A member of the RNA family "Microsporidia small subunit ribosomal RNA" from Chlamydomonas reinhardtii, 434 nucleotides of a longer RNA. Rfam 15.1 lists 1,035 matches to the family in 436 species.
[Rfam]
RNA sequence: CACCCGACUUCUGGAAGGGUCGUAUUUAUUAGAUAAAAGGCCAGCCGGGCUCUGCCCGACCUGCGGUGAAUCAUGAUAACUUCACGAAUCGUAUGGGCUCGUCCCGACGAUGUUUCAUUCAAAUUUCUGCCCUAUCAACUUUCGAUGGUAGGAUAGAGGCCUACCAUGGUGGUAACGGGUGACGGAGGAUUAGGGUUCGAUUCCGGAGAGGGAGCCUGAGAGAUGGCUACCACAUCCAAGGAAGGCAGCAGGCGCGCAAAUUACCCAAUCCCGACACGGGGAGGUAGUGACAAUAAAUAACAAUACCGGGCGCUUCGCGUCUGGUAAUUGGAAUGAGUACAAUCUAAAUCCCUUAACGAGGAUCCAUUGGAGGGCAAGUCUGGUGCCAGCAGCCGCGGUAAUUCCAGCUCCAAUAGCGUAUAUUUAAGUUGUUG
Numbered sequence: 001c002a003c004c005c006g007a008c009u010u011c012u013g014g015a016a017g018g019g020u021c022g023u024a025u026u027u028a029u030u031a032g033a034u035a036a037a038a039g040g041c042c043a044g045c046c047g048g049g050c051u052c053u054g055c056c057c058g059a060c061c062u063g064c065g066g067u068g069a070a071u072c073a074u075g076a077u078a079a080c081u082u083c084a085c086g087a088a089u090c091g092u093a094u095g096g097g098c099u100c101g102u103c104c105c106g107a108c109g110a111u112g113u114u115u116c117a118u119u120c121a122a123a124u125u126u127c128u129g130c131c132c133u134a135u136c137a138a139c140u141u142u143c144g145a146u147g148g149u150a151g152g153a154u155a156g157a158g159g160c161c162u163a164c165c166a167u168g169g170u171g172g173u174a175a176c177g178g179g180u181g182a183c184g185g186a187g188g189a190u191u192a193g194g195g196u197u198c199g200a201u202u203c204c205g206g207a208g209a210g211g212g213a214g215c216c217u218g219a220g221a222g223a224u225g226g227c228u229a230c231c232a233c234a235u236c237c238a239a240g241g242a243a244g245g246c247a248g249c250a251g252g253c254g255c256g257c258a259a260a261u262u263a264c265c266c267a268a269u270c271c272c273g274a275c276a277c278g279g280g281g282a283g284g285u286a287g288u289g290a291c292a293a294u295a296a297a298u299a300a301c302a303a304u305a306c307c308g309g310g311c312g313c314u315u316c317g318c319g320u321c322u323g324g325u326a327a328u329u330g331g332a333a334u335g336a337g338u339a340c341a342a343u344c345u346a347a348a349u350c351c352c353u354u355a356a357c358g359a360g361g362a363u364c365c366a367u368u369g370g371a372g373g374g375c376a377a378g379u380c381u382g383g384u385g386c387c388a389g390c391a392g393c394c395g396c397g398g399u400a401a402u403u404c405c406a407g408c409u410c411c412a413a414u415a416g417c418g419u420a421u422a423u424u425u426a427a428g429u430u431g432u433u434g
Base pairs, nucleotide, nucleotide: 011208012207019130020129022127024125026123029122030121131179132178133177138170139169140168145167146166147165148164149163150162151161152160183205184204185203186202187198188197189196190195210231211230213228214227215226233244235242236241261286263285264284265283269281270280271279272278273277367413368412369411370410371409372408380407381406382405383404389396390395
Gene Ontology terms of the family: structural constituent of ribosome and ribosome. The match comes from Rfam's covariance-model search (748 bits). The literature on the family includes a 2001 paper in Science by Yusupov et al., "Crystal structure of the ribosome at 5.5 A resolution".